[Rfam]
RNA sequence: CCUGCCGAAGUUUCCCUCAGGAUAGCAGUAACGUUUUCAGUUUUAUGAGGUAAAGCGAAUGAUUAGAGGCCUUGGGGUUGAAACAACCUUAACCUAUUCUCAAACUUUAAAUAUGUAAGAAGUCCUUGUUACUUAAUUGAACGUGGACAUUUGAAUGUACCGUUACUAGUGGGCCAUUUUUGGUAAGCAGAACUGGCGAUGCGGGAUGAACCGAACGUGAGGUUAAGGUGCCGGAAUGCACGCUCAUCAGACACCACAAAAGGUGUCAAUGCAUCUAGACAGCCGGACGGUGGCCAUGGAAGUCGGAAUCCGCUUAGGAGUGUGUAACAACUCACCGGCCGAAUGCAUUGGCCCUGAAAAUGGAUGGCGCUUAAGCGUGCUACCUAUACCUCGCCGUUAGGGUUGACAUGAUGCCCUAACGAGUAGGCAGGCGUGGAGGUCCGUGACGAAGCCUCGGGGGUGACCCCGGGUCGAACGACCUCUAGUGCAGAU
Number, nucleotide and partner (000 for none) at each position: 001c431002c430003u429004g428005c427006c426007g000008a000009a000010g000011u024012u000013u022014c021015c020016c000017u000018c000019a000020g015021g014022a013023u000024a011025g000026c000027a167028g166029u165030a164031a163032c162033g161034u000035u000036u000037u000038c000039a000040g000041u120042u119043u118044u117045a116046u115047g114048a000049g000050g000051u000052a000053a108054a106055g105056c000057g000058a000059a000060u102061g101062a100063u000064u000065a097066g000067a095068g094069g093070c000071c000072u092073u091074g090075g089076g088077g087078u000079u085080g000081a000082a000083a000084c000085a079086a000087c077088c076089u075090u074091a073092a072093c069094c068095u067096a000097u065098u000099c000100u062101c061102a060103a000104a000105c055106u054107u000108u053109a000110a000111a000112u000113a000114u047115g046116u045117a044118a043119g042120a041121a000122g148123u147124c146125c145126u000127u143128g142129u141130u140131a000132c000133u000134u000135a000136a000137u000138u000139g000140a130141a129142c128143g127144u000145g125146g124147a123148c122149a000150u000151u000152u000153g000154a000155a000156u000157g000158u000159a000160c000161c033162g032163u031164u030165a029166c028167u027168a000169g000170u000171g000172g000173g197174c196175c195176a194177u000178u192179u191180u190181u189182g188183g000184u000185a000186a000187g000188c182189a181190g180191a179192a178193c000194u176195g175196g174197c173198g000199a000200u000201g000202c213203g212204g211205g000206a000207u000208g000209a000210a000211c204212c203213g202214a000215a000216c000217g394218u393219g392220a391221g390222g000223u388224u000225a000226a000227g384228g383229u382230g000231c000232c000233g000234g000235a000236a381237u000238g380239c000240a000241c377242g376243c375244u000245c000246a000247u000248c000249a000250g000251a000252c000253a000254c000255c000256a000257c000258a000259a000260a000261a355262g354263g353264u000265g352266u351267c350268a349269a348270u347271g346272c345273a344274u343275c000276u000277a000278g000279a000280c000281a000282g339283c338284c337285g336286g335287a000288c312289g311290g310291u000292g000293g000294c306295c305296a000297u000298g000299g000300a000301a000302g000303u000304c000305g295306g294307a000308a000309u000310c290311c289312g288313c317314u000315u000316a000317g313318g333319a000320g000321u000322g331323u330324g000325u000326a000327a000328c000329a000330a323331c322332u000333c318334a000335c286336c285337g284338g283339c282340c000341g000342a000343a274344u273345g272346c271347a270348u269349u268350g267351g266352c265353c263354c262355u261356g000357a000358a000359a000360a000361u000362g000363g000364a000365u000366g000367g000368c000369g000370c000371u000372u000373a000374a000375g243376c242377g241378u000379g000380c238381u236382a229383c228384c227385u000386a000387u000388a223389c000390c221391u220392c219393g218394c217395c421396g420397u419398u418399a417400g416401g415402g414403u413404u000405g000406a000407c000408a000409u000410g000411a000412u000413g403414c402415c401416c400417u399418a398419a397420c396421g395422a000423g000424u000425a000426g006427g005428c004429a003430g002431g001432c487433g000434u484435g483436g482437a481438g480439g479440u478441c477442c000443g476444u475445g000446a000447c000448g000449a000450a000451g471452c470453c000454u000455c000456g000457g466458g465459g464460g000461u000462g000463a000464c459465c458466c457467c000468g000469g000470g452471u451472c000473g000474a000475a444476c443477g441478a440479c439480c438481u437482c436483u435484a434485g000486u000487g432488c000489a000490g000491a000492u000
The family of this 492-nucleotide part of an RNA from Cladophialophora carrionii is "Eukaryotic large subunit ribosomal RNA". Gene Ontology terms of the family: structural constituent of ribosome and ribosome. Its Rfam clan is "LSU clan". The organism belongs to Cladophialophora, within Eukaryota. It scores 3220 bits against the family's covariance model.